The record is an 87-nucleotide sequence from Myotis brandtii, which matches "mir-9195 microRNA precursor family" in Rfam.
[Rfam]
RNA sequence: AGAGGCCCUCCACGGCCUGGGUGGAAUGUUUGUCUCAUCACCAUGGUGACAAAGCAAGCAUUCUGCCAGGCCGCUCACGCUGCCCAC
Dot-bracket structure: ...(((......(((((..((((((((((((((....((((....))))....)))))))))))))).)))))........)))...
Numbered sequence: 001a002g003a004g005g006c007c008c009u010c011c012a013c014g015g016c017c018u019g020g021g022u023g024g025a026a027u028g029u030u031u032g033u034c035u036c037a038u039c040a041c042c043a044u045g046g047u048g049a050c051a052a053a054g055c056a057a058g059c060a061u062u063c064u065g066c067c068a069g070g071c072c073g074c075u076c077a078c079g080c081u082g083c084c085c086a087c
Stems, first nucleotide, its partner, number of pairs: 004084003013073005020067014038049004
The source organism's lineage runs through Eukaryota, Gnathostomata, Boreoeutheria, Chiroptera and Myotis.